[Rfam]
RNA sequence: AGGGUGUGCUCAGAGCAGGUGGCCUGAAGAAUGGCUUCUCUGUUUACAACACACCCAAUAAGAAUUUAGGGUCAUUGUGGCAAGGGUCACAAAACUUGCAGCCUCCCUUUGAGCAAAUGUCCUACACAU
Numbered sequence: 001a002g003g004g005u006g007u008g009c010u011c012a013g014a015g016c017a018g019g020u021g022g023c024c025u026g027a028a029g030a031a032u033g034g035c036u037u038c039u040c041u042g043u044u045u046a047c048a049a050c051a052c053a054c055c056c057a058a059u060a061a062g063a064a065u066u067u068a069g070g071g072u073c074a075u076u077g078u079g080g081c082a083a084g085g086g087u088c089a090c091a092a093a094a095c096u097u098g099c100a101g102c103c104u105c106c107c108u109u110u111g112a113g114c115a116a117a118u119g120u121c122c123u124a125c126a127c128a129u
Base pairs, nucleotide, nucleotide: 002056003055004054005053006052007051008050013045014044015043016042017041018040019039021037022035023034024033069122070121071120072119076115077114078113081111082110084104085103086102090098091097092096
RNA: Small nucleolar RNA SNORA11
Organism: Chinchilla lanigera